[Rfam]
RNA sequence: CUGCACUGAUGAUAAAAUGAACUCUCUCUUACUGAGUUUACAGUGGAGACAGACCUUAUAAUCUGAGUAGC
Numbered sequence: 001c002u003g004c005a006c007u008g009a010u011g012a013u014a015a016a017a018u019g020a021a022c023u024c025u026c027u028c029u030u031a032c033u034g035a036g037u038u039u040a041c042a043g044u045g046g047a048g049a050c051a052g053a054c055c056u057u058a059u060a061a062u063c064u065g066a067g068u069a070g071c
Base pairs, nucleotide, nucleotide: 001070002069003068004067
RNA: Small nucleolar RNA SNORD26